RNA sequence: GGGUUUAGGGGAACAUUCAACCUGUCGGUGAGUUUGGGCAGCUCAGGCAAACCAUCGACCGUUGAGUGGACCCUGAGACCU
Numbered sequence: 001g002g003g004u005u006u007a008g009g010g011g012a013a014c015a016u017u018c019a020a021c022c023u024g025u026c027g028g029u030g031a032g033u034u035u036g037g038g039c040a041g042c043u044c045a046g047g048c049a050a051a052c053c054a055u056c057g058a059c060c061g062u063u064g065a066g067u068g069g070a071c072c073c074u075g076a077g078a079c080c081u
Stems, first nucleotide, its partner, number of pairs: 001081003004077005014068008024059007032052004
RNA: mir-181 microRNA precursor family